[Rfam]
RNA: Archaeal RNase P
RNA sequence: GAGAGAGGAAGGGCGGCUGCCGCUGGCCGGUAUCGGCCGGUGUGGAAAGUCCCCCCACCUCUGGACACACAGGCAUCGAGAUGAUGCGGGGCGAGAGCUCCGGCUCUGGCACAGAAACGGGACUGCGCCGUGAUAAUGCGAUGAUGCCGAAAGGCGGAGGUCUCACGGAAUGCAGAUGAAACGGCGAAACCCUGUGGGUGCAAGCCAAAAUAGGGCAGCUCUGGGGGUGUCCAGCCCCUUGCCCGGGUAUGGCGCUAAGCUGAAUGCCGCCGAAACAGAAGGGGGCUUACUCUCCUGACUC
Numbered sequence: 001g002a003g004a005g006a007g008g009a010a011g012g013g014c015g016g017c018u019g020c021c022g023c024u025g026g027c028c029g030g031u032a033u034c035g036g037c038c039g040g041u042g043u044g045g046a047a048a049g050u051c052c053c054c055c056c057a058c059c060u061c062u063g064g065a066c067a068c069a070c071a072g073g074c075a076u077c078g079a080g081a082u083g084a085u086g087c088g089g090g091g092c093g094a095g096a097g098c099u100c101c102g103g104c105u106c107u108g109g110c111a112c113a114g115a116a117a118c119g120g121g122a123c124u125g126c127g128c129c130g131u132g133a134u135a136a137u138g139c140g141a142u143g144a145u146g147c148c149g150a151a152a153g154g155c156g157g158a159g160g161u162c163u164c165a166c167g168g169a170a171u172g173c174a175g176a177u178g179a180a181a182c183g184g185c186g187a188a189a190c191c192c193u194g195u196g197g198g199u200g201c202a203a204g205c206c207a208a209a210a211u212a213g214g215g216c217a218g219c220u221c222u223g224g225g226g227g228u229g230u231c232c233a234g235c236c237c238c239u240u241g242c243c244c245g246g247g248u249a250u251g252g253c254g255c256u257a258a259g260c261u262g263a264a265u266g267c268c269g270c271c272g273a274a275a276c277a278g279a280a281g282g283g284g285g286c287u288u289a290c291u292c293u294c295c296u297g298a299c300u301c
Stems, first nucleotide, its partner, number of pairs: 001301003006296004010291002012271006021042009047288003051285005056200004068196005073087005088101005102191002107187001109185002123175003128168006146155002204253004213244005